[Rfam]
RNA: mir-2807 microRNA precursor family
RNA sequence: UAAAACCAUAUUUGUGGAGUUGGAACGUUUGCCUACGUUUGCCGCUAGGGGCGCUGUUCCAACUCCAUACAAAUUUGAGUUA
Numbered sequence: 001u002a003a004a005a006c007c008a009u010a011u012u013u014g015u016g017g018a019g020u021u022g023g024a025a026c027g028u029u030u031g032c033c034u035a036c037g038u039u040u041g042c043c044g045c046u047a048g049g050g051g052c053g054c055u056g057u058u059c060c061a062a063c064u065c066c067a068u069a070c071a072a073a074u075u076u077g078a079g080u081u082a
Stems, first nucleotide, its partner, number of pairs: 008076001010074006016066001018064010032050003037045002